Shown here is a 133-nucleotide RNA sequence from Dasypus novemcinctus, a member of the family "Small nucleolar RNA SNORA41". Gene Ontology terms of the family: RNA processing and nucleolus. Rfam's curators put it in the seed alignment. Rfam describes the family as follows. ACA41 is a member of the H/ACA class of snoRNA that guide the sites of modification of uridines to pseudouridines. The base pairs follow the family's consensus structure, which was predicted with PFOLD. By type it is an H/ACA-box small nucleolar RNA. On this family, see Huttenhofer et al., EMBO J 2001: "RNomics: an experimental approach that identifies 201 candidates for novel, small, non-messenger RNAs in mouse".
RNA sequence: CUCCACAGCUACUGGUCUGCAGCUGUUCUUAUGGUGGCAAUUGUGGCAUUCCUCUGUGGUAAAGAAUCUGUUACAUAAUUAAAUACUUCUUUCUUAGCAAAACAGAAAGUGGGCAUGUGUGUGACAAAGUUAA
Numbered sequence: 001c002u003c004c005a006c007a008g009c010u011a012c013u014g015g016u017c018u019g020c021a022g023c024u025g026u027u028c029u030u031a032u033g034g035u036g037g038c039a040a041u042u043g044u045g046g047c048a049u050u051c052c053u054c055u056g057u058g059g060u061a062a063a064g065a066a067u068c069u070g071u072u073a074c075a076u077a078a079u080u081a082a083a084u085a086c087u088u089c090u091u092u093c094u095u096a097g098c099a100a101a102a103c104a105g106a107a108a109g110u111g112g113g114c115a116u117g118u119g120u121g122u123g124a125c126a127a128a129g130u131u132a133a
Stems, first nucleotide, its partner, number of pairs: 003059004017046006024039002073122005086113003089109006